[Rfam]
RNA sequence: GGGCAGUGAAGGCGUUGUCUCGUUCGUCUGAAUGACAUAAAUGACGACAAUUAUUACAUCACCACCCAUAAACUGAGCCC
Number, nucleotide and partner (000 for none) at each position: 001g080002g079003g078004c077005a000006g000007u000008g000009a000010a000011g000012g000013c000014g000015u000016u000017g000018u000019c000020u000021c000022g000023u000024u000025c000026g000027u000028c000029u000030g000031a000032a000033u000034g000035a000036c000037a042038u000039a000040a000041a000042u037043g000044a000045c000046g000047a000048c000049a000050a000051u000052u000053a000054u000055u000056a000057c000058a000059u000060c000061a000062c000063c000064a000065c000066c000067c000068a000069u000070a000071a000072a000073c000074u000075g000076a000077g004078c003079c002080c001